[Rfam]
RNA sequence: CGAUCGGGAGGCCGUCAUUGGGACGACGGCCAUGAAUGGAUCGCACCCCCGCUCUCUCUGAUGGCCGUGCGGCUGGGGCCCGACAGCACGCGCG
Numbered sequence: 001c002g003a004u005c006g007g008g009a010g011g012c013c014g015u016c017a018u019u020g021g022g023a024c025g026a027c028g029g030c031c032a033u034g035a036a037u038g039g040a041u042c043g044c045a046c047c048c049c050c051g052c053u054c055u056c057u058c059u060g061a062u063g064g065c066c067g068u069g070c071g072g073c074u075g076g077g078g079c080c081c082g083a084c085a086g087c088a089c090g091c092g093c094g
Stems, first nucleotide, its partner, number of pairs: 001043005010031007066094005072087004
RNA: Rhodo-rpoB RNA